[Rfam]
RNA sequence: AUUGGUACCCUAACACGAGUAUUGAUUUCUAUAUAUGCAGUAAGUGCUACUUGUUGGGGUAGUUUGA
Numbered sequence: 001a002u003u004g005g006u007a008c009c010c011u012a013a014c015a016c017g018a019g020u021a022u023u024g025a026u027u028u029c030u031a032u033a034u035a036u037g038c039a040g041u042a043a044g045u046g047c048u049a050c051u052u053g054u055u056g057g058g059g060u061a062g063u064u065u066g067a
Stems, first nucleotide, its partner, number of pairs: 004063001006061006013054003017050001018048006025041003

About this RNA
The record is a 67-nucleotide RNA sequence from Esox lucius, which matches "miR-430 microRNA precursor family" in Rfam. Its Rfam clan is "mir-290 clan". A search with the family's covariance model found it, with a score of 56 bits.